[Rfam]
RNA sequence: CUACUCCCUCCGUCCCAUAAUAUAAGAGCGUUUUUGACAUUAAUAAUGUUAAAAACGCUCUAAUAUUAUGGGACGGAGGAAGUAG
Numbered sequence: 001c002u003a004c005u006c007c008c009u010c011c012g013u014c015c016c017a018u019a020a021u022a023u024a025a026g027a028g029c030g031u032u033u034u035u036g037a038c039a040u041u042a043a044u045a046a047u048g049u050u051a052a053a054a055a056c057g058c059u060c061u062a063a064u065a066u067u068a069u070g071g072g073a074c075g076g077a078g079g080a081a082g083u084a085g
Base pairs, nucleotide, nucleotide: 003083004082005081007079008078009077010076011075013073014072015071016070017069019067020066021065022064023063025061026060027059028058029057030056031055032054033053034052035051036050037049038048039047040046041045
Dot-bracket structure: ..(((.(((((.(((((.(((((.(((((((((((((((((...))))))))))))))))).))))).))))).))))).)))..
MIR1120/MIR1122 microRNA precursor family: an 85-nucleotide RNA sequence from Triticum turgidum. NCBI's taxonomy places the organism under Eukaryota, Viridiplantae, Tracheophyta, Triticum, Triticum turgidum. On this family, see Yao et al., Genome Biol 2007: "Cloning and characterization of microRNAs from wheat (Triticum aestivum L.)". Pairs were carried over by alignment from the consensus structure, which was predicted with RNAalifold. The match comes from Rfam's covariance-model search (96 bits).